[Rfam]
RNA sequence: CCAGGACUUGACGGCCAAGGAAGUUGCGUUCAUGACGCGGCCAAAACAGGUUGAGUGUAACCUGAAAAUUCUUCC
Numbered sequence: 001c002c003a004g005g006a007c008u009u010g011a012c013g014g015c016c017a018a019g020g021a022a023g024u025u026g027c028g029u030u031c032a033u034g035a036c037g038c039g040g041c042c043a044a045a046a047c048a049g050g051u052u053g054a055g056u057g058u059a060a061c062c063u064g065a066a067a068a069u070u071c072u073u074c075c
Stems, first nucleotide, its partner, number of pairs: 013042004019075005026038003047064007
Overview:
Rfam assigns this 75-nucleotide RNA sequence from Scyliorhinus torazame to the family "Mammalian CPEB3 ribozyme". NCBI's taxonomy places the organism under Eukaryota, Opisthokonta, Eumetazoa, Galeoidea, Scyliorhinus.